[Rfam]
Nucleotides: 070
Base pairs, nucleotide, nucleotide: 003070004069005068007065008064009063010062015059016058017057018056020051
Number, partner (000 for none) and nucleotide at each position: 001000c002000c003070g004069g005068u006000u007065c008064c009063g010062g011000u012000u013000c014000a015059c016058g017057c018056c019000c020051g021000a022000g023000u024000c025000c026000a027000c028000c029000g030000c031000c032000c033000u034000g035000g036000c037000g038000g039000g040000g041000c042000g043000g044000c045000g046000g047000g048000g049000c050000a051020c052000u053000g054000a055000c056018g057017g058016c059015g060000a061000c062010c063009c064008g065007g066000c067000g068005a069004c070003c
Shown here is a 70-nucleotide RNA sequence, a member of the family "L31-Actinobacteria ribosomal protein leader". It is annotated as a cis-regulatory leader. The family's consensus secondary structure is taken from published work. It is one of the family's seed sequences.